[Rfam]
Nucleotides: 135
Stems, first nucleotide, its partner, number of pairs: 001063001003061006011054004018047003022041001024039004075130002078127003090123003096119003100115003104111002
Number, partner (000 for none) and nucleotide at each position: 001063u002000a003061u004060c005059c006058u007057u008056g009000a010000c011054c012053u013052g014051g015000g016000c017000a018047g019046a020045g021000u022041g023000a024039c025038a026037u027036c028000u029000g030000g031000u032000u033000g034000g035000u036027g037026g038025u039024g040000c041022c042000c043000a044000u045020c046019u047018c048000a049000u050000a051014u052013c053012a054011g055000c056008c057007a058006g059005g060004g061003g062000c063001a064000a065000a066000g067000c068000a069000a070000c071000c072000c073000c074000u075130u076129g077000c078127u079126u080125a081000u082000c083000c084000c085000a086000g087000c088000u089000u090123g091122g092121c093000u094000u095000c096119u097118g098117g099000u100115c101114u102113g103000u104111g105110c106000c107000c108000a109000u110105g111104c112000u113102u114101g115100g116000u117098u118097c119096a120000u121092g122091c123090c124000u125080u126079g127078g128000a129076c130075a131000c132000a133000u134000g135000g
Small nucleolar RNA SNORA48: a 135-nucleotide RNA from Otolemur garnettii. The family has 24 seed sequences and 2,109 matches in Rfam 15.1. The snoRNA ACA 48 has been identified to guide pseudouridylation of the residue U3797 in the 28S rRNA subunit. The source organism's lineage runs through Eukaryota, Metazoa, Vertebrata, Amniota and Otolemur.